[Rfam]
RNA sequence: AUAGAUAGGCCCUCCGAUGGCUGCUUGCCGGAGCGGCUAUUAAACCGCCUUGCGCUGCAUUUAGGUAAAACGUUGAUGUGGUGACCGGUAAGGAAAACCGGGGACAUUGAUCCCCAUAGGU
Numbered sequence: 001a002u003a004g005a006u007a008g009g010c011c012c013u014c015c016g017a018u019g020g021c022u023g024c025u026u027g028c029c030g031g032a033g034c035g036g037c038u039a040u041u042a043a044a045c046c047g048c049c050u051u052g053c054g055c056u057g058c059a060u061u062u063a064g065g066u067a068a069a070a071c072g073u074u075g076a077u078g079u080g081g082u083g084a085c086c087g088g089u090a091a092g093g094a095a096a097a098c099c100g101g102g103g104a105c106a107u108u109g110a111u112c113c114c115c116a117u118a119g120g121u
Stems, first nucleotide, its partner, number of pairs: 003013002016041006023034004046120001048093006054082002057079003062075003100115004
RNA: Group II catalytic intron D1-D4-2
Organism: Cyclobacterium lianum